[Rfam]
RNA sequence: UCUAGAACUCGAGAUAUGGGCUGAACACUGAAUAGUGUCUGUGUUGCAGGACAGAUUCAGACUUCUUCGUUAUUGCUACAAUUUGAACUUAAAAAUAGCAUUUUUAAAUCUUGGACUCCCAUAAAAUUUUUAGGCCUACGUCUUAGCUUUUCAUC
Numbered sequence: 001u002c003u004a005g006a007a008c009u010c011g012a013g014a015u016a017u018g019g020g021c022u023g024a025a026c027a028c029u030g031a032a033u034a035g036u037g038u039c040u041g042u043g044u045u046g047c048a049g050g051a052c053a054g055a056u057u058c059a060g061a062c063u064u065c066u067u068c069g070u071u072a073u074u075g076c077u078a079c080a081a082u083u084u085g086a087a088c089u090u091a092a093a094a095a096u097a098g099c100a101u102u103u104u105u106a107a108a109u110c111u112u113g114g115a116c117u118c119c120c121a122u123a124a125a126a127u128u129u130u131u132a133g134g135c136c137u138a139c140g141u142c143u144u145a146g147c148u149u150u151u152c153a154u155c
Stems, first nucleotide, its partner, number of pairs: 003153001005151003008146002011144005017138004021133005027128001029126001035122003041118001043117001045115001048112004054105002060099001062098002073087002
MIR2912 microRNA precursor family: a 155-nucleotide sequence from Populus tomentosa. The match comes from Rfam's covariance-model search (114 bits). Gene Ontology terms of the family: RISC complex and miRNA-mediated post-transcriptional gene silencing. NCBI's taxonomy places the organism under Eukaryota, Viridiplantae, Euphyllophyta, Gunneridae, Populus. Rfam 15.1 lists 15,051 matches to the family in 15 species.